[Rfam]
RNA sequence: AUUCGGUUGAAAGCGCCAGAACCUAAUUAUAAAGAUAUCAAAUUAGGUUGACGAGGGAGAGAGUUAUCGAUUUUUCGGCGGAUGCUCUCAGGUUGUAGCUGUUCUACCUAAAUAUUAUCUUUUAAAAUUGGUGGGUAACUGCCGAGACAGAGAAGAUAAUUAGCAGCUGA
Numbered sequence: 001a002u003u004c005g006g007u008u009g010a011a012a013g014c015g016c017c018a019g020a021a022c023c024u025a026a027u028u029a030u031a032a033a034g035a036u037a038u039c040a041a042a043u044u045a046g047g048u049u050g051a052c053g054a055g056g057g058a059g060a061g062a063g064u065u066a067u068c069g070a071u072u073u074u075u076c077g078g079c080g081g082a083u084g085c086u087c088u089c090a091g092g093u094u095g096u097a098g099c100u101g102u103u104c105u106a107c108c109u110a111a112a113u114a115u116u117a118u119c120u121u122u123u124a125a126a127a128u129u130g131g132u133g134g135g136u137a138a139c140u141g142c143c144g145a146g147a148c149a150g151a152g153a154a155g156a157u158a159a160u161u162a163g164c165a166g167c168u169g170a
Stems, first nucleotide, its partner, number of pairs: 020049008059089005067078004090109004095104001114160007128145007
RNA: glmS glucosamine-6-phosphate activated ribozyme aptamer